The record is a 72-nucleotide RNA, which matches "tRNA" in Rfam. Rfam's curators put it in the seed alignment.

RNA sequence: UAGAAAAUAGUUUAACCAGUAAAACUAAGAAAUUUGAAUUCUUUAAUACAAGUGCAACCCUUGUUUUUCUAA
Number, nucleotide and partner (000 for none) at each position: 001u071002a070003g069004a068005a067006a066007a065008u000009a000010g025011u024012u023013u022014a000015a000016c000017c000018a000019g000020u000021a000022a013023a012024a011025c010026u000027a043028a042029g041030a040031a039032a000033u000034u000035u000036g000037a000038a000039u031040u030041c029042u028043u027044u000045a000046a000047u000048a064049c063050a062051a061052g060053u000054g000055c000056a000057a000058c000059c000060c052061u051062u050063g049064u048065u007066u006067u005068u004069c003070u002071a001072a000